Rfam assigns this 118-nucleotide RNA sequence from Gossypium mustelinum to the family "Small nucleolar RNA snoR104". The family's RNA type in Rfam is H/ACA-box small nucleolar RNA. Taxonomically the source falls in Gossypium (Eukaryota, Viridiplantae, Pentapetalae, Malvoideae). The match comes from Rfam's covariance-model search (105 bits).

RNA sequence: GGGGAGCAUUACAGAGAUGAGAUGUUGCCUGAUACAACCUUCCUACAUAAAAUUCUGUAUUUUCCUGCUUGUAGCACUUGAGCUAGUUUCUACAAGCCUCAUAUCUACAGAGACAUGA
Numbered sequence: 001g002g003g004g005a006g007c008a009u010u011a012c013a014g015a016g017a018u019g020a021g022a023u024g025u026u027g028c029c030u031g032a033u034a035c036a037a038c039c040u041u042c043c044u045a046c047a048u049a050a051a052a053u054u055c056u057g058u059a060u061u062u063u064c065c066u067g068c069u070u071g072u073a074g075c076a077c078u079u080g081a082g083c084u085a086g087u088u089u090c091u092a093c094a095a096g097c098c099u100c101a102u103a104u105c106u107a108c109a110g111a112g113a114c115a116u117g118a
Stems, first nucleotide, its partner, number of pairs: 001030003005026006054111003067097008076087003